Notes:
The record is a 106-nucleotide RNA from Tetzosporium hominis, which matches "SAM riboswitch aptamer (S box leader)" in Rfam. It scores 90 bits against the family's covariance model.
Nucleotides: 106
Base pairs, nucleotide, nucleotide: 002105003104004103005102006101007100008099013042014041015040016039017038021031022030023029025079026078027077028076043071044070045069046068048067049066050063052062053061075098080095081094082093083092084091085090
Number, partner (000 for none) and nucleotide at each position: 001000a002105u003104c004103u005102u006101a007100u008099c009000g010000c011000g012000a013042g014041a015040g016039a017038u018000a019000g020000a021031g022030g023029g024000a025079c026078u027077g028076g029023c030022c031021c032000g033000a034000u035000g036000a037000c038017a039016u040015c041014u042013c043071a044070g045069c046068a047000a048067c049066c050063a051000g052062c053061u054000g055000c056000a057000u058000g059000a060000c061053a062052g063050u064000a065000u066049g067048g068046u069045g070044c071043u072000a073000a074000u075098u076028c077027c078026a079025g080095c081094a082093g083092a084091g085090u086000u087000u088000a089000g090085a091084c092083u093082c094081u095080g096000a097000c098075a099008g100007a101006u102005a103004a104003g105002a106000g